[Rfam]
RNA: Mason-Pfizer monkey virus packaging signal
Organism: Sciurus vulgaris
RNA sequence: UGGCGCCCAACGGUGUGGCUUUGGAUAUGUGGGAAUUCGUGAGGGAAGAGGCAUCUAAGUGUUCAGCUGAAGAAAAAAAAGUGAAAGUCAGUUCCACAAAGAUCGCUGGGGGAGCCUGCCGUGCCGUUCUUAAAGGUACAGUAGCGCCUAAGUAAGGGACAAGAAUUAAGUAAGCAUAAAGUUUUUGUUAAGCAAUUAAAAGAAGCUUUAAAGACACGGGGAGUAAAGGUUAAGAGUAAUGAUCUUUUUAAGUUUUUUGACCUUAUUAAGGACACCUGUCUCU
Number, nucleotide and partner (000 for none) at each position: 001u000002g000003g000004c000005g000006c033007c032008c031009a000010a000011c000012g000013g028014u027015g026016u000017g000018g000019c000020u000021u000022u000023g000024g000025a000026u015027a014028u013029g000030u000031g008032g007033g006034a000035a000036u000037u000038c051039g000040u049041g000042a000043g000044g000045g000046a000047a000048g000049a040050g000051g038052c000053a000054u000055c000056u000057a000058a000059g000060u000061g000062u000063u000064c000065a000066g000067c000068u000069g000070a000071a000072g000073a000074a000075a000076a000077a000078a000079a000080a000081g000082u000083g000084a000085a000086a000087g000088u136089c135090a000091g000092u133093u132094c000095c000096a000097c000098a000099a000100a000101g000102a128103u000104c126105g000106c000107u123108g122109g000110g120111g119112g000113a000114g000115c000116c000117u000118g000119c111120c110121g000122u108123g107124c000125c000126g104127u000128u102129c000130u000131u000132a093133a092134a000135g089136g088137u000138a000139c000140a000141g000142u162143a000144g160145c000146g000147c158148c157149u156150a000151a000152g000153u000154a000155a000156g149157g148158g147159a000160c144161a000162a142163g000164a000165a000166u000167u210168a209169a208170g206171u205172a000173a000174g000175c000176a000177u000178a000179a000180a000181g000182u000183u000184u000185u000186u000187g000188u000189u000190a000191a000192g000193c000194a000195a000196u000197u000198a000199a000200a000201a000202g000203a000204a000205g171206c170207u000208u169209u168210a167211a000212a000213g000214a000215c000216a000217c259218g258219g257220g256221g255222a254223g253224u252225a000226a000227a245228g244229g243230u242231u241232a240233a000234g000235a000236g000237u000238a000239a000240u232241g231242a230243u229244c228245u227246u000247u000248u000249u000250a000251a000252g224253u223254u222255u221256u220257u219258u218259g217260a000261c000262c000263u000264u000265a000266u000267u000268a283269a000270g281271g280272a279273c278274a000275c000276c000277u000278g273279u272280c271281u270282c000283u268